[Rfam]
Rfam assigns this 86-nucleotide sequence from Brassica napus to the family "Small nucleolar RNA snoR110".
The family's RNA type in Rfam is H/ACA-box small nucleolar RNA.
The family has 2 seed sequences and 42 matches in Rfam 15.1.
It scores 88 bits against the family's covariance model.
NCBI's taxonomy places the organism under Eukaryota, Spermatophyta, Gunneridae, Brassiceae, Brassica.

RNA sequence: GCUACAUUUAGUGCCGCCUCUGUCUUGUAAAGUUUUAUCCUUUUUAUAUGUAAGGAUAGUGCUGUUUUACUUGGCGGCAGAAAUCU
Numbered sequence: 001g002c003u004a005c006a007u008u009u010a011g012u013g014c015c016g017c018c019u020c021u022g023u024c025u026u027g028u029a030a031a032g033u034u035u036u037a038u039c040c041u042u043u044u045u046a047u048a049u050g051u052a053a054g055g056a057u058a059g060u061g062c063u064g065u066u067u068u069a070c071u072u073g074g075c076g077g078c079a080g081a082a083a084u085c086u
Base pairs, nucleotide, nucleotide: 012079013078014077015076016075017074018073022070023069031063032062033061036058038056039055040054041053042052